[Rfam]
RNA: Flavo-1 RNA
Organism: Flavobacterium bizetiae
RNA sequence: CCUUAGCCCUGAUAACAGUGAAAAUCUUUUUGUGCCAGUGUUCUGCGCAAAAGAUUGGAACAUAAAGCGGUAAGAGCU
Numbered sequence: 001c002c003u004u005a006g007c008c009c010u011g012a013u014a015a016c017a018g019u020g021a022a023a024a025u026c027u028u029u030u031u032g033u034g035c036c037a038g039u040g041u042u043c044u045g046c047g048c049a050a051a052a053g054a055u056u057g058g059a060a061c062a063u064a065a066a067g068c069g070g071u072a073a074g075a076g077c078u
Base pairs, nucleotide, nucleotide: 009070010069011068013066018061019060023056024055025054026053029051030050031049032048033047034046035045